RNA: Bacterial RNase P class B
RNA sequence: AUUUUUGGAUAAUCGCGUGAAGAGGAUCUCUUUUCAUGAGGAAAGUCCAUGCUAGCACAGGCUGUGAUGCCUGUAGUGUUUGUGCUAGGCGAAUCCAUAAGCCUAGGGACGAGAAAUCGUUACGGCAGUCGAAAUGGCUAAGUCUUCGGAUAGGUCAAAAUAGGCUUGAAAGUGCCACAGUGACGGAGUCUUUCUGGAAACAGAGAGAGUGGAACGCGGUAAACCCCUCAAGCUAGCAACCCAAAUUUUGGUCGGGGCAUGGAGUGCACGGAAACGAACGUAGUACUCUGACUGCUAGCAGAUUUAUGCUGUUAGCGGUAGACAGAUGAUUAUCGAAGGAAGUGGUCCUAGUCACUUCUGGAACAAAACAUGGCUUAUAGAA
Numbered sequence: 001a002u003u004u005u006u007g008g009a010u011a012a013u014c015g016c017g018u019g020a021a022g023a024g025g026a027u028c029u030c031u032u033u034u035c036a037u038g039a040g041g042a043a044a045g046u047c048c049a050u051g052c053u054a055g056c057a058c059a060g061g062c063u064g065u066g067a068u069g070c071c072u073g074u075a076g077u078g079u080u081u082g083u084g085c086u087a088g089g090c091g092a093a094u095c096c097a098u099a100a101g102c103c104u105a106g107g108g109a110c111g112a113g114a115a116a117u118c119g120u121u122a123c124g125g126c127a128g129u130c131g132a133a134a135u136g137g138c139u140a141a142g143u144c145u146u147c148g149g150a151u152a153g154g155u156c157a158a159a160a161u162a163g164g165c166u167u168g169a170a171a172g173u174g175c176c177a178c179a180g181u182g183a184c185g186g187a188g189u190c191u192u193u194c195u196g197g198a199a200a201c202a203g204a205g206a207g208a209g210u211g212g213a214a215c216g217c218g219g220u221a222a223a224c225c226c227c228u229c230a231a232g233c234u235a236g237c238a239a240c241c242c243a244a245a246u247u248u249u250g251g252u253c254g255g256g257g258c259a260u261g262g263a264g265u266g267c268a269c270g271g272a273a274a275c276g277a278a279c280g281u282a283g284u285a286c287u288c289u290g291a292c293u294g295c296u297a298g299c300a301g302a303u304u305u306a307u308g309c310u311g312u313u314a315g316c317g318g319u320a321g322a323c324a325g326a327u328g329a330u331u332a333u334c335g336a337a338g339g340a341a342g343u344g345g346u347c348c349u350a351g352u353c354a355c356u357u358c359u360g361g362a363a364c365a366a367a368a369c370a371u372g373g374c375u376u377a378u379a380g381a382a
Stems, first nucleotide, its partner, number of pairs: 004382003007378001008334007016038006043376003047373005052236005057074006080231003084227001085106006107123001108121005124226002127166004135157004142151003172224002174220003189208008240256003260290007291319011338359008